RNA sequence: UGAGACAUAACACCAUAGCAGACGCGCUUAUGGCAUGGCCACCUCAGAUUCAAAUGAAUCUGCGAAUUCUGCU
Numbered sequence: 001u002g003a004g005a006c007a008u009a010a011c012a013c014c015a016u017a018g019c020a021g022a023c024g025c026g027c028u029u030a031u032g033g034c035a036u037g038g039c040c041a042c043c044u045c046a047g048a049u050u051c052a053a054a055u056g057a058a059u060c061u062g063c064g065a066a067u068u069c070u071g072c073u
Stems, first nucleotide, its partner, number of pairs: 013038002017073006024036001026034001045062007
RNA: Mammalian CPEB3 ribozyme